[Rfam]
The family of this 396-nucleotide sequence from Albidovulum aquaemixtae is "Bacterial RNase P class A". The match comes from Rfam's covariance-model search (273 bits). The base pairs follow the family's consensus structure, which is taken from published work. Rfam describes the family as follows. Ribonuclease P (RNase P) is a ubiquitous endoribonuclease, found in archaea, bacteria and eukarya as well as chloroplasts and mitochondria. The family's RNA type in Rfam is ribozyme.
RNA sequence: GCGGAUGGCCGGAUGGCCGCGGCGGGCGACCGCCGAGGAAAGUCCGGACUCCAUGAAGCGGCGGUGCCGGGUAACGCCCGGCCGGGGAAACCCGAGGGAAAGCGCCACAGAAAUCAAACCGCUUCCGUUCCGACGGGAGCAAGGGUGAAACGGUGGGGUAAGAGCCCACCGCGGACCUGGCGACAGGGACGGCACGGCAAGCCCCACCGGGAGCAAUGCCAAAUAGGGGCCUCGCGCGGGGACCGGUCCGGCAACGGAGACCGCCCGCAGGGACGCUUCAGCCCGAGAGGCCCGGGUUGGCAGCUUGAGCGCGCCGGUAACGGCGGGCCAAGAGGAAUGGCCAUCCAUGGGGGGCGACCCCCGGGACAGAAUCCGGCUUACAGGCCAUCCGCGCAU
Numbered sequence: 001g002c003g004g005a006u007g008g009c010c011g012g013a014u015g016g017c018c019g020c021g022g023c024g025g026g027c028g029a030c031c032g033c034c035g036a037g038g039a040a041a042g043u044c045c046g047g048a049c050u051c052c053a054u055g056a057a058g059c060g061g062c063g064g065u066g067c068c069g070g071g072u073a074a075c076g077c078c079c080g081g082c083c084g085g086g087g088a089a090a091c092c093c094g095a096g097g098g099a100a101a102g103c104g105c106c107a108c109a110g111a112a113a114u115c116a117a118a119c120c121g122c123u124u125c126c127g128u129u130c131c132g133a134c135g136g137g138a139g140c141a142a143g144g145g146u147g148a149a150a151c152g153g154u155g156g157g158g159u160a161a162g163a164g165c166c167c168a169c170c171g172c173g174g175a176c177c178u179g180g181c182g183a184c185a186g187g188g189a190c191g192g193c194a195c196g197g198c199a200a201g202c203c204c205c206a207c208c209g210g211g212a213g214c215a216a217u218g219c220c221a222a223a224u225a226g227g228g229g230c231c232u233c234g235c236g237c238g239g240g241g242a243c244c245g246g247u248c249c250g251g252c253a254a255c256g257g258a259g260a261c262c263g264c265c266c267g268c269a270g271g272g273a274c275g276c277u278u279c280a281g282c283c284c285g286a287g288a289g290g291c292c293c294g295g296g297u298u299g300g301c302a303g304c305u306u307g308a309g310c311g312c313g314c315c316g317g318u319a320a321c322g323g324c325g326g327g328c329c330a331a332g333a334g335g336a337a338u339g340g341c342c343a344u345c346c347a348u349g350g351g352g353g354g355c356g357a358c359c360c361c362c363g364g365g366a367c368a369g370a371a372u373c374c375g376g377c378u379u380a381c382a383g384g385c386c387a388u389c390c391g392c393g394c395a396u
Stems, first nucleotide, its partner, number of pairs: 001392010011381001012345007020035006040379003044376005049213004058278001060276001062209005067081005082096001083094004097204002102202002104198003119144002121140008152170006171193001172191002176187004217302004227293006270284003309328002312325005